The record is a 107-nucleotide sequence from Hevea brasiliensis, which matches "Small nucleolar RNA snoR109" in Rfam. Rfam classes the family as an H/ACA-box small nucleolar RNA. Its family is annotated with nucleolus and RNA processing in the Gene Ontology. Taxonomically the source falls in Hevea (Eukaryota, Spermatophyta, Gunneridae, fabids).
RNA sequence: UGGCUAUAGCUAUAUUAAUUAUGGCUGAGAAGCUCACUGGCUGGUUGUUGUAUGAGAUUUCUUUGAGAUAAUUGUUGACAUAUCUGCUUACCGAGGUUCUCACAUUU
Dot-bracket structure: ..........................(((((.((....(((.(((.((((.........................))))..))).))).....)).)))))......